[Rfam]
RNA sequence: AUGAAGGUAUGGGGAGAGAGCUGUUUUUACAGCCACCGAAGAAGUAAAUCUUUCAGGUAAAUGGACCUAUACUGGACG
Numbered sequence: 001a002u003g004a005a006g007g008u009a010u011g012g013g014g015a016g017a018g019a020g021c022u023g024u025u026u027u028u029a030c031a032g033c034c035a036c037c038g039a040a041g042a043a044g045u046a047a048a049u050c051u052u053u054c055a056g057g058u059a060a061a062u063g064g065a066c067c068u069a070u071a072c073u074g075g076a077c078g
Base pairs, nucleotide, nucleotide: 006073007072008071009070010069011068012067013066020033021032022031023030035058036057037056038054039053042052043051044050
RNA: Glycine riboswitch aptamer
Organism: Ilyobacter polytropus